transfer-messenger RNA: a 363-nucleotide sequence from Alteribacillus persepolensis. The family's consensus secondary structure is taken from published work. Its family is annotated with RNA catabolic process in the Gene Ontology. Its Rfam clan is "tRNA clan". The literature on the family includes a 2003 paper in Nucleic Acids Res by Zwieb et al., "tmRDB (tmRNA database)".
[Rfam]
RNA sequence: GGGGACGACACGGCUUCGACAGGGAUAGGUCGAGCUUAAGUAGCGAGUCGAGCUGGGCAGUCUCGAUAAAGGCCCACGCCAAUAAUAACUGGCAAAUCUAACGAAAACCUCGCAGUAGCUGCGUAACAGUUGACUGCGGAUCCCGCUCUCCAUCGCCCAUGUGGAGUGACCGGGGUCUCACUAUGAAGUGGGCUACGCUGUCCGGCCGCCGUCUGAGGCCGGCAGAAGAGAUUAAUCAGACUAGCCUUGCAGCGGCCCGUCACUAGGCCAAUGCAACGGCGAACCAUAAUAUAGUGACUACGCUCGUAGAAGCUUAAGUGGCGAUAUUCCUGGACGUGGGUUCGAUUCCCACCGUCUCCACCA
Numbered sequence: 001g002g003g004g005a006c007g008a009c010a011c012g013g014c015u016u017c018g019a020c021a022g023g024g025a026u027a028g029g030u031c032g033a034g035c036u037u038a039a040g041u042a043g044c045g046a047g048u049c050g051a052g053c054u055g056g057g058c059a060g061u062c063u064c065g066a067u068a069a070a071g072g073c074c075c076a077c078g079c080c081a082a083u084a085a086u087a088a089c090u091g092g093c094a095a096a097u098c099u100a101a102c103g104a105a106a107a108c109c110u111c112g113c114a115g116u117a118g119c120u121g122c123g124u125a126a127c128a129g130u131u132g133a134c135u136g137c138g139g140a141u142c143c144c145g146c147u148c149u150c151c152a153u154c155g156c157c158c159a160u161g162u163g164g165a166g167u168g169a170c171c172g173g174g175g176u177c178u179c180a181c182u183a184u185g186a187a188g189u190g191g192g193c194u195a196c197g198c199u200g201u202c203c204g205g206c207c208g209c210c211g212u213c214u215g216a217g218g219c220c221g222g223c224a225g226a227a228g229a230g231a232u233u234a235a236u237c238a239g240a241c242u243a244g245c246c247u248u249g250c251a252g253c254g255g256c257c258c259g260u261c262a263c264u265a266g267g268c269c270a271a272u273g274c275a276a277c278g279g280c281g282a283a284c285c286a287u288a289a290u291a292u293a294g295u296g297a298c299u300a301c302g303c304u305c306g307u308a309g310a311a312g313c314u315u316a317a318g319u320g321g322c323g324a325u326a327u328u329c330c331u332g333g334a335c336g337u338g339g340g341u342u343c344g345a346u347u348c349c350c351a352c353c354g355u356c357u358c359c360a361c362c363a
Stems, first nucleotide, its partner, number of pairs: 001359007020332008034319008044306005049065004054076005114135003118130004139177006146168001148166006155193006198225005204219001206217001211242001214239001244280003248275004255268003259298004264291002336352005